[Rfam]
RNA: mir-277 microRNA precursor family
Organism: Phaedon cochleariae
RNA sequence: AGCACGGCUGACGUCGUGCCAGAAGCGCGUUUACACGGAACCAGACGAUUAGAAGGCUGUAAAUGCACUAUCUGGUACGACAGUCGGCCGUGC
Numbered sequence: 001a002g003c004a005c006g007g008c009u010g011a012c013g014u015c016g017u018g019c020c021a022g023a024a025g026c027g028c029g030u031u032u033a034c035a036c037g038g039a040a041c042c043a044g045a046c047g048a049u050u051a052g053a054a055g056g057c058u059g060u061a062a063a064u065g066c067a068c069u070a071u072c073u074g075g076u077a078c079g080a081c082a083g084u085c086g087g088c089c090g091u092g093c
Stems, first nucleotide, its partner, number of pairs: 008087004015079009025068001027066009